[Rfam]
RNA sequence: UCAAAAAUAUUUCCUGCUGUUCGUAUAUCCUCAAAGAUAAGGUUUGGGGGUUUCUACAGGGAACCGUAAAUUCCUGGCUACGGAUGGGUGCCUUUGGCCU
Numbered sequence: 001u002c003a004a005a006a007a008u009a010u011u012u013c014c015u016g017c018u019g020u021u022c023g024u025a026u027a028u029c030c031u032c033a034a035a036g037a038u039a040a041g042g043u044u045u046g047g048g049g050g051u052u053u054c055u056a057c058a059g060g061g062a063a064c065c066g067u068a069a070a071u072u073c074c075u076g077g078c079u080a081c082g083g084a085u086g087g088g089u090g091c092c093u094u095u096g097g098c099c100u
Stems, first nucleotide, its partner, number of pairs: 018086008029049007059075005